[Rfam]
RNA: Small nucleolar RNA snoR145
RNA sequence: AAACGAAGGUCCCAGCAGGGAGGGUGAAAUACUCUAAACGAGUCCUCUCUAACACUUUUUAUUUACCUUCGGAUAUUUAUUUGCCGAAUCGUAGGAUGCUCUGAAUUUUUCAUUUUGGUGAUGUCUUGAAAUCUCGGCUAUAUUUUU
Numbered sequence: 001a002a003a004c005g006a007a008g009g010u011c012c013c014a015g016c017a018g019g020g021a022g023g024g025u026g027a028a029a030u031a032c033u034c035u036a037a038a039c040g041a042g043u044c045c046u047c048u049c050u051a052a053c054a055c056u057u058u059u060u061a062u063u064u065a066c067c068u069u070c071g072g073a074u075a076u077u078u079a080u081u082u083g084c085c086g087a088a089u090c091g092u093a094g095g096a097u098g099c100u101c102u103g104a105a106u107u108u109u110u111c112a113u114u115u116u117g118g119u120g121a122u123g124u125c126u127u128g129a130a131a132u133c134u135c136g137g138c139u140a141u142a143u144u145u146u147u
Base pairs, nucleotide, nucleotide: 004071005070006069007068008067009066011020012019013018026049027048032042033041034040083138084137085136086135087134095125096124098122099120101118102117103116104115105114